Annotation: Shown here is a 50-nucleotide RNA sequence, a member of the family "Exoribonuclease-resistant RNA (xrRNA) plant-infecting virus (class 3)". Pairs were carried over by alignment from the consensus structure, which is taken from published work. Its family is annotated with viral RNA genome replication in the Gene Ontology. A reference for the family is Steckelberg et al. (2020), "The crystal structure of a Polerovirus exoribonuclease-resistant RNA shows how diverse sequences are integrated into a conserved fold", RNA. Rfam describes the family as follows. Exoribonuclease-resistant RNA (xrRNA) plant-infecting virus (class 3) is a ncRNA that was reported in Plant viruses.

[Rfam]
RNA sequence: AAUCAGCCGGACAUACGUAAGUUGCGAGUGCCGGAAGAUCAGUCUUACAC
Numbered sequence: 001a002a003u004c005a006g007c008c009g010g011a012c013a014u015a016c017g018u019a020a021g022u023u024g025c026g027a028g029u030g031c032c033g034g035a036a037g038a039u040c041a042g043u044c045u046u047a048c049a050c
Stems, first nucleotide, its partner, number of pairs: 001039001003037001007034002010032001011029002017048005